[Rfam]
RNA sequence: CCCUCCGAGGGGCGCUGCGACGGGGCGCACGGGCGCCCCUGCCAGGCUCGCUGGGGCGGAUUACUACCGUGCAACGGCGCCCGUUCAUC
Number, nucleotide and partner (000 for none) at each position: 001c000002c054003c053004u000005c000006c050007g049008a048009g000010g000011g000012g000013c000014g000015c000016u000017g000018c000019g000020a000021c041022g040023g039024g038025g037026c000027g000028c000029a000030c000031g000032g000033g000034c000035g000036c000037c025038c024039c023040u022041g021042c000043c000044a000045g000046g000047c000048u008049c007050g006051c000052u000053g003054g002055g000056g000057c000058g000059g000060a000061u000062u000063a000064c000065u000066a000067c000068c000069g000070u000071g000072c000073a000074a000075c000076g000077g000078c000079g000080c000081c000082c000083g000084u000085u000086c000087a000088u000089c000

A member of the RNA family "SAH (S-adenosyl-L-homocysteine) riboswitch aptamer" from Urbifossiella limnaea, 89 nucleotides long. A search with the family's covariance model found it, with a score of 50 bits. A reference for the family is Wang et al. (2008), "Riboswitches that sense S-adenosylhomocysteine and activate genes involved in coenzyme recycling", Mol Cell. Lineage of the source: Bacteria > Planctomycetota > Gemmatales > Gemmataceae > Urbifossiella.